[Rfam]
RNA sequence: UCACUGGCCUCCGAGUUAAAGUUUAACGGAAUCAGCCCAGUACCGGACACGACGAAAAGG
Numbered sequence: 001u002c003a004c005u006g007g008c009c010u011c012c013g014a015g016u017u018a019a020a021g022u023u024u025a026a027c028g029g030a031a032u033c034a035g036c037c038c039a040g041u042a043c044c045g046g047a048c049a050c051g052a053c054g055a056a057a058a059g060g
Base pairs, nucleotide, nucleotide: 004040005039006038007037010030011029012028013027014023015022016021
Record summary:
Shown here is a 60-nucleotide sequence, a member of the family "cow-rumen-1 RNA". Rfam's curators put it in the seed alignment.